[Rfam]
RNA sequence: UGCGUAUUUUGCCCAGGCGGAGCUCGACCGCCGUAUGAAGUCCUGAAGGCGUUUUUCGAUCACUAUCGUGUCCGUCUCGAGGGCGAGUCGAUCUGUCGUGUCCGGCGUGAUGAGCUGCU
Numbered sequence: 001u002g003c004g005u006a007u008u009u010u011g012c013c014c015a016g017g018c019g020g021a022g023c024u025c026g027a028c029c030g031c032c033g034u035a036u037g038a039a040g041u042c043c044u045g046a047a048g049g050c051g052u053u054u055u056u057c058g059a060u061c062a063c064u065a066u067c068g069u070g071u072c073c074g075u076c077u078c079g080a081g082g083g084c085g086a087g088u089c090g091a092u093c094u095g096u097c098g099u100g101u102c103c104g105g106c107g108u109g110a111u112g113a114g115c116u117g118c119u
Base pairs, nucleotide, nucleotide: 016032017031018030019029020028081119082118089117090116092110093109094107095106096105097104098103